[Rfam]
RNA sequence: CCUGCCCCUAGAGGUGUUUUAGGUGUGGCUGCAGUGUCAUAUGUGUGUCAGUAGGUGGCAGAGAGGAGAGAGGCUGUGCCUAUGCUCACUGUUCAGACCAUUGAACAUUUGAAUGAUCAGUAGCCUAACAUU
Numbered sequence: 001c002c003u004g005c006c007c008c009u010a011g012a013g014g015u016g017u018u019u020u021a022g023g024u025g026u027g028g029c030u031g032c033a034g035u036g037u038c039a040u041a042u043g044u045g046u047g048u049c050a051g052u053a054g055g056u057g058g059c060a061g062a063g064a065g066g067a068g069a070g071a072g073g074c075u076g077u078g079c080c081u082a083u084g085c086u087c088a089c090u091g092u093u094c095a096g097a098c099c100a101u102u103g104a105a106c107a108u109u110u111g112a113a114u115g116a117u118c119a120g121u122a123g124c125c126u127a128a129c130a131u132u
Stems, first nucleotide, its partner, number of pairs: 002061005007055004013049003020045002024041006068129001071126007083115002086112003090107005